[Rfam]
RNA sequence: CACGGGGCGAUCCGAGGCUAACUGGCUCCUACCCGUGCUGUGUGAAGCCUUCUGGUAGUUCCGGAGAUGU
Numbered sequence: 001c002a003c004g005g006g007g008c009g010a011u012c013c014g015a016g017g018c019u020a021a022c023u024g025g026c027u028c029c030u031a032c033c034c035g036u037g038c039u040g041u042g043u044g045a046a047g048c049c050u051u052c053u054g055g056u057a058g059u060u061c062c063g064g065a066g067a068u069g070u
Base pairs, nucleotide, nucleotide: 003063004062005061007059008058015050016049017048